[Rfam]
RNA sequence: CUGCACCCUGGUUCAAGUAAUCCAGGAUAGGCUGUUUCCUGGCACAGCGGCCUAUUCUUGACUACUUGUUUCAGGUGGUGG
Numbered sequence: 001c002u003g004c005a006c007c008c009u010g011g012u013u014c015a016a017g018u019a020a021u022c023c024a025g026g027a028u029a030g031g032c033u034g035u036u037u038c039c040u041g042g043c044a045c046a047g048c049g050g051c052c053u054a055u056u057c058u059u060g061a062c063u064a065c066u067u068g069u070u071u072c073a074g075g076u077g078g079u080g081g
Stems, first nucleotide, its partner, number of pairs: 002080003007075005014068006021061002024058010

The record is an 81-nucleotide RNA sequence from Erpetoichthys calabaricus, which matches "mir-26 microRNA precursor family" in Rfam.
Lineage of the source: Eukaryota > Opisthokonta > Vertebrata > Teleostomi > Erpetoichthys.
On this family, see Lagos-Quintana et al., Science 2001: "Identification of novel genes coding for small expressed RNAs".
Rfam 15.1 lists 2,251 matches to the family in 645 species.